The record is a 25-nucleotide sequence from Staphylothermus marinus, which matches "CRISPR RNA direct repeat element" in Rfam. NCBI's taxonomy places the organism under Archaea, Thermoproteota, Thermoprotei, Staphylothermus, Staphylothermus marinus. It scores 35 bits against the family's covariance model. Rfam links the family to the GO term defense response. Rfam 15.1 lists 138 matches to the family in 15 species.
RNA sequence: CUUUCAAUUCUUUUAGUGUUGUUAC
Numbered sequence: 001c002u003u004u005c006a007a008u009u010c011u012u013u014u015a016g017u018g019u020u021g022u023u024a025c
Stems, first nucleotide, its partner, number of pairs: 005021004